[Rfam]
RNA sequence: UGUUGCCAUCAGCAGCACAGAAGUAAGGGUGGUGUGAUAUGGUAUUGACACCUUUUACUUCUGUGCUGCUGCUGGCAGGG
Numbered sequence: 001u002g003u004u005g006c007c008a009u010c011a012g013c014a015g016c017a018c019a020g021a022a023g024u025a026a027g028g029g030u031g032g033u034g035u036g037a038u039a040u041g042g043u044a045u046u047g048a049c050a051c052c053u054u055u056u057a058c059u060u061c062u063g064u065g066c067u068g069c070u071g072c073u074g075g076c077a078g079g080g
Stems, first nucleotide, its partner, number of pairs: 001080001003078001005076003011070008020060001022059008
Description:
Shown here is an 80-nucleotide RNA sequence from Gopherus agassizii, a member of the family "mir-16 microRNA precursor family". Taxonomically the source falls in Gopherus (Eukaryota, Bilateria, Sauropsida, Testudinata). For this family Rfam cites "Cryo-EM Structures of Human Drosha and DGCR8 in Complex with Primary MicroRNA" (Partin et al., Mol Cell, 2020). The family is grouped with related families in Rfam's "mir-15 clan". Gene Ontology terms of the family: miRNA-mediated post-transcriptional gene silencing and RISC complex. It scores 40 bits against the family's covariance model.